[Rfam]
RNA: mir-135 microRNA precursor family
RNA sequence: CCACACAUGCAUCUUAUGGCUUUCUAUUCCUAUGUGAGUUCUAAACACAUCAUGUAGGGUUUAAAGCCAUCGGAUACACAGUGGA
Numbered sequence: 001c002c003a004c005a006c007a008u009g010c011a012u013c014u015u016a017u018g019g020c021u022u023u024c025u026a027u028u029c030c031u032a033u034g035u036g037a038g039u040u041c042u043a044a045a046c047a048c049a050u051c052a053u054g055u056a057g058g059g060u061u062u063a064a065a066g067c068c069a070u071c072g073g074a075u076a077c078a079c080a081g082u083g084g085a
Base pairs, nucleotide, nucleotide: 002084008078009077011075012074013073014072016070017069018068019067020066021065022064023063026061028059029058030057031056032055033054034053035052036051037050